RNA sequence: CCUCCCUUUAACUCGGUCCCGUGAGGCUGGGAAGGGGUACUCUCCUUCUGUGCACAGGAUAUGUGUGCAAAACAGGCAGAUGAUACCUCUUUGGGCUCAAAGAGGUUUUUUGUUU
Numbered sequence: 001c002c003u004c005c006c007u008u009u010a011a012c013u014c015g016g017u018c019c020c021g022u023g024a025g026g027c028u029g030g031g032a033a034g035g036g037g038u039a040c041u042c043u044c045c046u047u048c049u050g051u052g053c054a055c056a057g058g059a060u061a062u063g064u065g066u067g068c069a070a071a072a073c074a075g076g077c078a079g080a081u082g083a084u085a086c087c088u089c090u091u092u093g094g095g096c097u098c099a100a101a102g103a104g105g106u107u108u109u110u111u112g113u114u115u
Base pairs, nucleotide, nucleotide: 003037004036005035006034007033008032009031013030014029015028016027017026018025044076045075046074049071051069052068053067054066055065056064082109083108085106086105087104088103089102090101091100092099093098